Shown here is a 136-nucleotide RNA sequence, a member of the family "Small nucleolar RNA SNORD94". The base pairs follow the family's consensus structure, which was predicted with RNAalifold. By type it is a C/D-box small nucleolar RNA. It is one of the family's seed sequences.
RNA sequence: GGAGCAAUGAUGAGUGGCGCAGGGGUACGUACCUCAGCUGAUAAUGGGAGCUGAGUGUUGACUGCUCAAAAUCAGUGGACAUGUGGUCAGCUGGUUGUAGGGUGUCAGCACGAAAUUAUCGCCUUGACUGAGCUCC
Numbered sequence: 001g002g003a004g005c006a007a008u009g010a011u012g013a014g015u016g017g018c019g020c021a022g023g024g025g026u027a028c029g030u031a032c033c034u035c036a037g038c039u040g041a042u043a044a045u046g047g048g049a050g051c052u053g054a055g056u057g058u059u060g061a062c063u064g065c066u067c068a069a070a071a072u073c074a075g076u077g078g079a080c081a082u083g084u085g086g087u088c089a090g091c092u093g094g095u096u097g098u099a100g101g102g103u104g105u106c107a108g109c110a111c112g113a114a115a116u117u118a119u120c121g122c123c124u125u126g127a128c129u130g131a132g133c134u135c136c
Stems, first nucleotide, its partner, number of pairs: 001136005